The record is a 127-nucleotide RNA sequence from Oricola cellulosilytica, which matches "Alphaproteobacterial ar14" in Rfam. The literature on the family includes a 2012 paper in RNA Biol by del Val et al., "A survey of sRNA families in alpha-proteobacteria". Rfam links the family to the GO term biological process involved in symbiotic interaction. Pairs were carried over by alignment from the consensus structure.
RNA sequence: UGAAUUCCGGGUGAACCGUUCCUCCUCCCCGGUUCAUCUGGCUGACGGGGCGCAGCCCGACCUCCCUCCCAAGGCCCGCGCCAUCCGUAACAGACACCCGCUGCUCCUCCCGCAGCGGGUGUUUUCG
Numbered sequence: 001u002g003a004a005u006u007c008c009g010g011g012u013g014a015a016c017c018g019u020u021c022c023u024c025c026u027c028c029c030c031g032g033u034u035c036a037u038c039u040g041g042c043u044g045a046c047g048g049g050g051c052g053c054a055g056c057c058c059g060a061c062c063u064c065c066c067u068c069c070c071a072a073g074g075c076c077c078g079c080g081c082c083a084u085c086c087g088u089a090a091c092a093g094a095c096a097c098c099c100g101c102u103g104c105u106c107c108u109c110c111c112g113c114a115g116c117g118g119g120u121g122u123u124u125u126c127g
Stems, first nucleotide, its partner, number of pairs: 007041003011037007049082005055076001057074002094122011